The family of this 65-nucleotide RNA from Hymenochirus boettgeri is "Small nucleolar RNA SNORD58". Pairs were carried over by alignment from the consensus structure, which was predicted with PFOLD. Clan: SNORD58 clan. The organism belongs to Hymenochirus, within Eukaryota.
RNA sequence: CUGCAGUGAUGACUCUUAGGACACCUUUGGAAAAACCAUGAAAAUAACAUUGAAAUCUGAGCAGU
Number, nucleotide and partner (000 for none) at each position: 001c064002u063003g062004c061005a000006g000007u000008g000009a000010u000011g000012a000013c000014u000015c000016u000017u000018a000019g000020g000021a000022c000023a000024c000025c000026u000027u000028u000029g000030g000031a000032a000033a000034a000035a000036c000037c000038a000039u000040g000041a000042a000043a000044a000045u000046a000047a000048c000049a000050u000051u000052g000053a000054a000055a000056u000057c000058u000059g000060a000061g004062c003063a002064g001065u000
Rfam 15.1 lists 2,484 matches to the family in 680 species. The match comes from Rfam's covariance-model search (71 bits).